[Rfam]
RNA sequence: GACCGUGCGGUAGCGCCAAUGGAUAGAAUUCUUGCCUUUUACCAGAACUCUUCGUGUCGCUCCGCAUCACACGGCCUCAUCAAUAUUUGGAACCCCAUCGAAGUGGCUU
Numbered sequence: 001g002a003c004c005g006u007g008c009g010g011u012a013g014c015g016c017c018a019a020u021g022g023a024u025a026g027a028a029u030u031c032u033u034g035c036c037u038u039u040u041a042c043c044a045g046a047a048c049u050c051u052u053c054g055u056g057u058c059g060c061u062c063c064g065c066a067u068c069a070c071a072c073g074g075c076c077u078c079a080u081c082a083a084u085a086u087u088u089g090g091a092a093c094c095c096c097a098u099c100g101a102a103g104u105g106g107c108u109u
Stems, first nucleotide, its partner, number of pairs: 003074004008064003012061004017056002025051003029047004091109001095106004
About this RNA:
U5 spliceosomal RNA: a 109-nucleotide RNA from Friedmanniomyces simplex. By type it is a spliceosomal small nuclear RNA. The family's consensus secondary structure is taken from published work. It scores 51 bits against the family's covariance model. U5 RNA is a component of both types of known spliceosome.